This 145-nucleotide RNA from Gossypium australe belongs to the Rfam family "MIR7502 microRNA precursor family". A search with the family's covariance model found it, with a score of 101 bits.
[Rfam]
RNA sequence: UGUUAAAAUUUUUAUCAAUUUGUACUAUUAAAAAUUGGUGUUACAGAUAGAAUAAUUAGAUAGUGACAUGUGGUGUGCCAUGCAUACUUCAUGUUGAUAUACAGAGAUCAGUUUUGAACAGUAAAAAUAGAUUGAAUUUUUAAUA
Numbered sequence: 001u002g003u004u005a006a007a008a009u010u011u012u013u014a015u016c017a018a019u020u021u022g023u024a025c026u027a028u029u030a031a032a033a034a035u036u037g038g039u040g041u042u043a044c045a046g047a048u049a050g051a052a053u054a055a056u057u058a059g060a061u062a063g064u065g066a067c068a069u070g071u072g073g074u075g076u077g078c079c080a081u082g083c084a085u086a087c088u089u090c091a092u093g094u095u096g097a098u099a100u101a102c103a104g105a106g107a108u109c110a111g112u113u114u115u116g117a118a119c120a121g122u123a124a125a126a127a128u129a130g131a132u133u134g135a136a137u138u139u140u141u142a143a144u145a
Base pairs, nucleotide, nucleotide: 002144003143004142005141006140007139008138010136011135012134014132015131016130018128019127020126021125023123024122025121026120028118029117031115032114033113
Dot-bracket structure: .(((((((.(((.(((.((((.((((.((.(((...............................................................................))).)).)))).)))).))).))).))))))).
Rfam 15.1 lists 74,505 matches to the family in 24 species. NCBI's taxonomy places the organism under Eukaryota, Magnoliopsida, Mesangiospermae, Malvaceae, Gossypium.